[Rfam]
RNA sequence: GGUCAAUGAUGUCACUUGGCAUGUAUUAGCUGACUUCAGAGCUGAAGAUUUACCUCUUUUGCACUGAGACCAA
Numbered sequence: 001g002g003u004c005a006a007u008g009a010u011g012u013c014a015c016u017u018g019g020c021a022u023g024u025a026u027u028a029g030c031u032g033a034c035u036u037c038a039g040a041g042c043u044g045a046a047g048a049u050u051u052a053c054c055u056c057u058u059u060u061g062c063a064c065u066g067a068g069a070c071c072a073a
Stems, first nucleotide, its partner, number of pairs: 001071004